RNA sequence: GCGGUACCGGUUCCCGCCGCGCGCGAAAUCACUCAGUGUGUCAGCGCGCAAGCCGUACGAGCGACCCGGCGACC
Numbered sequence: 001g002c003g004g005u006a007c008c009g010g011u012u013c014c015c016g017c018c019g020c021g022c023g024c025g026a027a028a029u030c031a032c033u034c035a036g037u038g039u040g041u042c043a044g045c046g047c048g049c050a051a052g053c054c055g056u057a058c059g060a061g062c063g064a065c066c067c068g069g070c071g072a073c074c
Stems, first nucleotide, its partner, number of pairs: 003074003007069004015063003018059002021056002
RNA: L31-Actinobacteria ribosomal protein leader